[Rfam]
RNA: PyrR binding site
RNA sequence: AAUUCCUUUAAAUUGGUCCAGAGAGGCCAAAAAGGCAAAAGUAAAAUUCAUGUAUACUUUGUUACGUAUAUGAAUGCCCUUUUGUCCUUUGGAUGAAAGGGCAUUUUAU
Number, nucleotide and partner (000 for none) at each position: 001a000002a000003u037004u000005c035006c034007u033008u032009u031010a000011a000012a000013u030014u029015g028016g027017u026018c025019c000020a000021g000022a000023g000024a000025g018026g017027c016028c015029a014030a013031a009032a008033a007034g006035g005036c000037a003038a000039a000040a000041g000042u000043a000044a069045a000046a067047u066048u000049c000050a062051u061052g060053u000054a058055u000056a000057c000058u054059u000060u052061g051062u050063u000064a000065c000066g047067u046068a000069u044070a000071u000072g000073a000074a104075u103076g102077c101078c100079c099080u098081u097082u096083u095084g094085u093086c092087c091088u000089u000090u000091g087092g086093a085094u084095g083096a082097a081098a080099g079100g078101g077102c076103a075104u074105u000106u000107u000108a000109u000